[Rfam]
Overview: The family of this 151-nucleotide RNA sequence from Paecilomyces variotii is "A. fumigatus sRNA Afu_254". A search with the family's covariance model found it, with a score of 93 bits. Taxonomically the source falls in Paecilomyces (Eukaryota, Fungi, saccharomyceta, Thermoascaceae). The base pairs follow the family's consensus structure, which was predicted with WAR.
RNA sequence: UUCCAACUUUUCAAACUAUCUUAUCAAACGUUUCAAGAGAUCUCCAUCUCUCCCCAAACCACAAUCAAAAUGUCUCCCUGCUCUUGCAACUGCUGCUCCGGCAACUGCGCCUCCUGCUCCUGCUCCAGCUGCUCUGUAUGUGUAUAUCAGC
Numbered sequence: 001u002u003c004c005a006a007c008u009u010u011u012c013a014a015a016c017u018a019u020c021u022u023a024u025c026a027a028a029c030g031u032u033u034c035a036a037g038a039g040a041u042c043u044c045c046a047u048c049u050c051u052c053c054c055c056a057a058a059c060c061a062c063a064a065u066c067a068a069a070a071u072g073u074c075u076c077c078c079u080g081c082u083c084u085u086g087c088a089a090c091u092g093c094u095g096c097u098c099c100g101g102c103a104a105c106u107g108c109g110c111c112u113c114c115u116g117c118u119c120c121u122g123c124u125c126c127a128g129c130u131g132c133u134c135u136g137u138a139u140g141u142g143u144a145u146a147u148c149a150g151c
Base pairs, nucleotide, nucleotide: 079103080102081101082100086096087095088094107132108131109130116123117122